RNA: Molybdenum/Tungsten riboswitch aptamer (Moco RNA motif)
RNA sequence: AAAUAAAGUGAUCUCCGAGUUUAGUAUUUCUAAACCAUUACAAAUGGAACGAAUUCUAAACCGAUGGGUAAAUUGGGAAACGAAUUUGCCUCCCGUUGGGUGUAAACCCUAAAUUUGGAAAGGAGUGUUUUUGUGAUUUAG
Numbered sequence: 001a002a003a004u005a006a007a008g009u010g011a012u013c014u015c016c017g018a019g020u021u022u023a024g025u026a027u028u029u030c031u032a033a034a035c036c037a038u039u040a041c042a043a044a045u046g047g048a049a050c051g052a053a054u055u056c057u058a059a060a061c062c063g064a065u066g067g068g069u070a071a072a073u074u075g076g077g078a079a080a081c082g083a084a085u086u087u088g089c090c091u092c093c094c095g096u097u098g099g100g101u102g103u104a105a106a107c108c109c110u111a112a113a114u115u116u117g118g119a120a121a122g123g124a125g126u127g128u129u130u131u132u133g134u135g136a137u138u139u140a141g
Stems, first nucleotide, its partner, number of pairs: 006132001013125004019061006026054001028053003035047003066091009076081001092118002